[Rfam]
RNA sequence: ACACGGGAAGGAGGUGGUCCGGAGAAUGAGUUCUUCCAGGACGAGUGAGGUGGCUGCCCGCUAGCAGCCCCAGCAGGACGACGGGGCAGGAGUGCCCCUGAUGCUGCUGGCGAAUUCCAAGCAGCUGCCCGACCCGCAGGUGACCCGGCUCCGUCCGCCGGGUGCGGCUCUCCACGAGAGCCACACCUGCGGGUCGCUGCAC
Numbered sequence: 001a002c003a004c005g006g007g008a009a010g011g012a013g014g015u016g017g018u019c020c021g022g023a024g025a026a027u028g029a030g031u032u033c034u035u036c037c038a039g040g041a042c043g044a045g046u047g048a049g050g051u052g053g054c055u056g057c058c059c060g061c062u063a064g065c066a067g068c069c070c071c072a073g074c075a076g077g078a079c080g081a082c083g084g085g086g087c088a089g090g091a092g093u094g095c096c097c098c099u100g101a102u103g104c105u106g107c108u109g110g111c112g113a114a115u116u117c118c119a120a121g122c123a124g125c126u127g128c129c130c131g132a133c134c135c136g137c138a139g140g141u142g143a144c145c146c147g148g149c150u151c152c153g154u155c156c157g158c159c160g161g162g163u164g165c166g167g168c169u170c171u172c173c174a175c176g177a178g179a180g181c182c183a184c185a186c187c188u189g190c191g192g193g194u195c196g197c198u199g200c201a202c
Stems, first nucleotide, its partner, number of pairs: 013058006059112007067104002071100003130196013144162006
Actinobacteria sRNA Ms_IGR-5: a 202-nucleotide RNA sequence from Nocardioides dokdonensis.
The family's RNA type in Rfam is small RNA.
For this family Rfam cites "Identification of small RNAs in Mycobacterium smegmatis using heterologous Hfq" (Li et al., RNA, 2013).